[Rfam]
Shown here is an 84-nucleotide RNA from Trichoderma cornu-damae, a member of the family "tRNA". Pairs were carried over by alignment from the consensus structure, which is taken from published work. Gene Ontology term of the family: triplet codon-amino acid adaptor activity. Rfam's curators write: Transfer RNA (tRNA) molecules are approximately 80 nucleotides in length. Their secondary structure includes four short double-helical elements and three loops (D, anti-codon, and T loops). Further hydrogen bonds mediate the characteristic L-shaped molecular structure. tRNAs have two regions of fundamental functional importance: the anti-codon, which is responsible for specific mRNA codon recognition, and the 3' end, to which the tRNAs corresponding amino acid is attached (by aminoacyl-tRNA synthetases). tRNAs cope with the degeneracy of the genetic code in two manners: having more than one tRNA (with a specific anti-codon) for a particular amino acid; and 'wobble' base-pairing, i.e. permitting non-standard base-pairing at the 3rd anti-codon position. By type it is a transfer RNA.

RNA sequence: UCCGACGUGGUGUAGUGGCUAGCAUACUGCGCUUUCACUAGUGAAAGUCCCGCAGCGAUCCGGGUUCGACUCCCGGCGCCGGAA
Dot-bracket structure: ((((.((..((((........)))).(((((...................)))))....(((((.......))))))).)))).